[Rfam]
RNA sequence: AUAAAGAUCAGCCAUUCAUGGGGUUUUAACAAAAGCAUAUUAGGUGGCGGAAGGGGGGUCGGAGGUUUCGGUUUCGGUUUCGGAUUCCGUCGAUCCCCACCCUCCGCCACCAUAAACUGUUUGCCAGUGCUUAGACGGAUAGCUCGGCCUAAACAGAAGCACGCAUGGAAGAUCAGAUAUAUGCAGUGGAGGGCUUUUGGCUAAUGCAAUGGCAAGUCGGCAAGUCACGAGAAGGGCAAUGAACUCAUGUCUAUGAUCCUU
Numbered sequence: 001a002u003a004a005a006g007a008u009c010a011g012c013c014a015u016u017c018a019u020g021g022g023g024u025u026u027u028a029a030c031a032a033a034a035g036c037a038u039a040u041u042a043g044g045u046g047g048c049g050g051a052a053g054g055g056g057g058g059u060c061g062g063a064g065g066u067u068u069c070g071g072u073u074u075c076g077g078u079u080u081c082g083g084a085u086u087c088c089g090u091c092g093a094u095c096c097c098c099a100c101c102c103u104c105c106g107c108c109a110c111c112a113u114a115a116a117c118u119g120u121u122u123g124c125c126a127g128u129g130c131u132u133a134g135a136c137g138g139a140u141a142g143c144u145c146g147g148c149c150u151a152a153a154c155a156g157a158a159g160c161a162c163g164c165a166u167g168g169a170a171g172a173u174c175a176g177a178u179a180u181a182u183g184c185a186g187u188g189g190a191g192g193g194c195u196u197u198u199g200g201c202u203a204a205u206g207c208a209a210u211g212g213c214a215a216g217u218c219g220g221c222a223a224g225u226c227a228c229g230a231g232a233a234g235g236g237c238a239a240u241g242a243a244c245u246c247a248u249g250u251c252u253a254u255g256a257u258c259c260u261u
Stems, first nucleotide, its partner, number of pairs: 046108006119217006139205002245256002